[Rfam]
RNA sequence: GGUCUUGAGCUCCAGCGCACAGCCCCGGCUUGCUGGACAGCAACCCUCCACCGCGGUGGGGUGCUCCGGGUGACGACCUGGCCCGACCAUCCGGUCGGCGCAAGCGCGGACU
Numbered sequence: 001g002g003u004c005u006u007g008a009g010c011u012c013c014a015g016c017g018c019a020c021a022g023c024c025c026c027g028g029c030u031u032g033c034u035g036g037a038c039a040g041c042a043a044c045c046c047u048c049c050a051c052c053g054c055g056g057u058g059g060g061g062u063g064c065u066c067c068g069g070g071u072g073a074c075g076a077c078c079u080g081g082c083c084c085g086a087c088c089a090u091c092c093g094g095u096c097g098g099c100g101c102a103a104g105c106g107c108g109g110a111c112u
Base pairs, nucleotide, nucleotide: 001078002077003076004075009038011037012036013035014034015033016032021030022029039065040064041063044061045060046059048056049055081101082100083098084097085096086095087094088093
Dot-bracket structure: ((((....(.((((((....((......)).)))))))(((..(((.((.....))..))).))).........))))..((((((((....)))))).))...........
This 112-nucleotide RNA sequence from Luteipulveratus halotolerans belongs to the Rfam family "SAM (S-adenosyl methionine) riboswitch aptamer". Rfam links the family to the GO terms regulation of gene expression and S-adenosylmethionine metabolic process. The family has 40 seed sequences and 2,360 matches in Rfam 15.1.